[Rfam]
RNA sequence: AUUGGUUACCAAAACUGGUUUUCACAGUGAUUUUGCAGACGUUUUUGAAAUCUGAGAUCAUUGUGAAAGCUGUUUCUGUUAC
Numbered sequence: 001a002u003u004g005g006u007u008a009c010c011a012a013a014a015c016u017g018g019u020u021u022u023c024a025c026a027g028u029g030a031u032u033u034u035g036c037a038g039a040c041g042u043u044u045u046u047g048a049a050a051u052c053u054g055a056g057a058u059c060a061u062u063g064u065g066a067a068a069g070c071u072g073u074u075u076c077u078g079u080u081a082c
Stems, first nucleotide, its partner, number of pairs: 010078002013075002016072010028060006
RNA: bantam microRNA precursor family
Organism: Medioppia subpectinata